[Rfam]
RNA sequence: GUGCAUAUGAUGUGAAUACUUUUGUUAUGAGUAAUACUGUGAUACUGUAAACGCUUUCUGAUGCA
Numbered sequence: 001g002u003g004c005a006u007a008u009g010a011u012g013u014g015a016a017u018a019c020u021u022u023u024g025u026u027a028u029g030a031g032u033a034a035u036a037c038u039g040u041g042a043u044a045c046u047g048u049a050a051a052c053g054c055u056u057u058c059u060g061a062u063g064c065a
Stems, first nucleotide, its partner, number of pairs: 002065004012057001015055001017053001022047001024045001026044003